Background: The family of this 387-nucleotide RNA from Methylocystis echinoides is "Bacterial RNase P class A". A search with the family's covariance model found it, with a score of 296 bits.

RNA sequence: CCAGUCGGCUGGACGGCCGCUGCGUCAUGCAGAGGAAAGUCCGGGCUCCACGGAGACACGGCGCCGGAUAACGUCCGGCGGGGGCGACCCCAGGGAAAGCGCCACAGAAAGCAAACCGCCGGGCUAUACGCCCGGUAAGGGUGAAAGGGUGCGGUAAGAGCGCACCGCCUCGACGGCAACGCCGAGGGCAUGGCAAGCCCCGCCGGGAGCAAAACCGAAUAGGGGCGACGGAAAGCCGCAAGGCUUUCAACCCGUCUCCGGGAUGUCGCCCGGGUUGGUUGCUCGAGGCGGUCGGCGACGACCGUCCCAGAGGAAUGGCCGUCACGCGCGGGAGCGGGAAACCGCGUCCGCGCCAUACAGAACCCGGCUUACAGGCCGGCUGGCUCU
Numbered sequence: 001c002c003a004g005u006c007g008g009c010u011g012g013a014c015g016g017c018c019g020c021u022g023c024g025u026c027a028u029g030c031a032g033a034g035g036a037a038a039g040u041c042c043g044g045g046c047u048c049c050a051c052g053g054a055g056a057c058a059c060g061g062c063g064c065c066g067g068a069u070a071a072c073g074u075c076c077g078g079c080g081g082g083g084g085c086g087a088c089c090c091c092a093g094g095g096a097a098a099g100c101g102c103c104a105c106a107g108a109a110a111g112c113a114a115a116c117c118g119c120c121g122g123g124c125u126a127u128a129c130g131c132c133c134g135g136u137a138a139g140g141g142u143g144a145a146a147g148g149g150u151g152c153g154g155u156a157a158g159a160g161c162g163c164a165c166c167g168c169c170u171c172g173a174c175g176g177c178a179a180c181g182c183c184g185a186g187g188g189c190a191u192g193g194c195a196a197g198c199c200c201c202g203c204c205g206g207g208a209g210c211a212a213a214a215c216c217g218a219a220u221a222g223g224g225g226c227g228a229c230g231g232a233a234a235g236c237c238g239c240a241a242g243g244c245u246u247u248c249a250a251c252c253c254g255u256c257u258c259c260g261g262g263a264u265g266u267c268g269c270c271c272g273g274g275u276u277g278g279u280u281g282c283u284c285g286a287g288g289c290g291g292u293c294g295g296c297g298a299c300g301a302c303c304g305u306c307c308c309a310g311a312g313g314a315a316u317g318g319c320c321g322u323c324a325c326g327c328g329c330g331g332g333a334g335c336g337g338g339a340a341a342c343c344g345c346g347u348c349c350g351c352g353c354c355a356u357a358c359a360g361a362a363c364c365c366g367g368c369u370u371a372c373a374g375g376c377c378g379g380c381u382g383g384c385u386c387u
Stems, first nucleotide, its partner, number of pairs: 001383010011372001012323007020032005037370003041367005046209004055257001059205005064078005079093001080091004094200002099198002101194003116140002118136007148166006167189001168187005174181002213280004223271006249264001251262003287306008